Rfam assigns this 66-nucleotide RNA from Homo sapiens to the family "mir-4451 microRNA precursor family".
It is one of the family's seed sequences.
Taxonomically the source falls in Homo (Eukaryota, Craniata, Dipnotetrapodomorpha, Haplorrhini).
The base pairs follow the family's consensus structure, which was predicted with RNAalifold.
RNA sequence: UCUGUACCUCAGCUUUGCUCCCAACCAACCACUUCCACAUGUUUUGCUGGUAGAGCUGAGGACAGC
Numbered sequence: 001u002c003u004g005u006a007c008c009u010c011a012g013c014u015u016u017g018c019u020c021c022c023a024a025c026c027a028a029c030c031a032c033u034u035c036c037a038c039a040u041g042u043u044u045u046g047c048u049g050g051u052a053g054a055g056c057u058g059a060g061g062a063c064a065g066c
Stems, first nucleotide, its partner, number of pairs: 002065004007061013022046003027043003
Dot-bracket structure: .((((.(((((((((((((..(((..(((...........))))))..))))))))))))))))).